[Rfam]
RNA sequence: CUUUUGUUGUGAUGAAUUCAUGAAAUAUUCACAUGUCAGACUUCAAAGAGAAAUCUAUGAGAAGAAAUUCAUGUAUCCCUAAGCAGAAG
Numbered sequence: 001c002u003u004u005u006g007u008u009g010u011g012a013u014g015a016a017u018u019c020a021u022g023a024a025a026u027a028u029u030c031a032c033a034u035g036u037c038a039g040a041c042u043u044c045a046a047a048g049a050g051a052a053a054u055c056u057a058u059g060a061g062a063a064g065a066a067a068u069u070c071a072u073g074u075a076u077c078c079c080u081a082a083g084c085a086g087a088a089g
Stems, first nucleotide, its partner, number of pairs: 001089007048055002
This 89-nucleotide RNA from Anisodus acutangulus belongs to the Rfam family "Small nucleolar RNA R64/Z200 family". The family has 14 seed sequences and 748 matches in Rfam 15.1. It is annotated as a C/D-box small nucleolar RNA. It scores 68 bits against the family's covariance model. The literature on the family includes a 2002 paper in Mol Cell Biol by Galardi et al., "Purified box C/D snoRNPs are able to reproduce site-specific 2'-O-methylation of target RNA in vitro".